[Rfam]
RNA sequence: CCCCAGUGAUGAACCCCCCACGUGUCUGACCCCCCCCCAGUGUCCCCAGAACCUGCCCAAGGUUGAACCCACUGGGGCCGGGGGGGGGAGGGGAACGACGCCUCGUCCCGAGUGGACGGUCUGAGGGGG
Numbered sequence: 001c002c003c004c005a006g007u008g009a010u011g012a013a014c015c016c017c018c019c020a021c022g023u024g025u026c027u028g029a030c031c032c033c034c035c036c037c038c039a040g041u042g043u044c045c046c047c048a049g050a051a052c053c054u055g056c057c058c059a060a061g062g063u064u065g066a067a068c069c070c071a072c073u074g075g076g077g078c079c080g081g082g083g084g085g086g087g088g089a090g091g092g093g094a095a096c097g098a099c100g101c102c103u104c105g106u107c108c109c110g111a112g113u114g115g116a117c118g119g120u121c122u123g124a125g126g127g128g129g
Stems, first nucleotide, its partner, number of pairs: 001128004